[Rfam]
RNA sequence: GGGCCGGUCUUAGCUCAGCGGUUCCUUCAACAGUCCAUUGUCAAAACCACUCUUUGGAGAGUGGUUCGAGAUCCGCAGGCACUCUCCAGCCCUUUU
Numbered sequence: 001g002g003g004c005c006g007g008u009c010u011u012a013g014c015u016c017a018g019c020g021g022u023u024c025c026u027u028c029a030a031c032a033g034u035c036c037a038u039u040g041u042c043a044a045a046a047c048c049a050c051u052c053u054u055u056g057g058a059g060a061g062u063g064g065u066u067c068g069a070g071a072u073c074c075g076c077a078g079g080c081a082c083u084c085u086c087c088a089g090c091c092c093u094u095u096u
Stems, first nucleotide, its partner, number of pairs: 002091003006087002013080003018076004026070003030066001
RNA: Vault RNA
Organism: Sus scrofa